[Rfam]
RNA sequence: CGGUCACACCAGGGGUGCCCCGGACGGGGCUGAGAUGCGCGGGACCGCGCGAACCCUUCACAGCUGAUCCGGGUCAUGCCGGCGGAGCGAGGUUCCCAUGUUCAUCG
Numbered sequence: 001c002g003g004u005c006a007c008a009c010c011a012g013g014g015g016u017g018c019c020c021c022g023g024a025c026g027g028g029g030c031u032g033a034g035a036u037g038c039g040c041g042g043g044a045c046c047g048c049g050c051g052a053a054c055c056c057u058u059c060a061c062a063g064c065u066g067a068u069c070c071g072g073g074u075c076a077u078g079c080c081g082g083c084g085g086a087g088c089g090a091g092g093u094u095c096c097c098a099u100g101u102u103c104a105u106c107g
Stems, first nucleotide, its partner, number of pairs: 008093003011057004016051001017030005037050005063088003069082004

This 107-nucleotide RNA from Wenxinia saemankumensis belongs to the Rfam family "TPP riboswitch aptamer (THI element)". Rfam's curators write: Vitamin B(1) in its active form thiamin pyrophosphate (TPP) is an essential coenzyme that is synthesised by coupling of pyrimidine and thiazole moieties in bacteria. It scores 68 bits against the family's covariance model.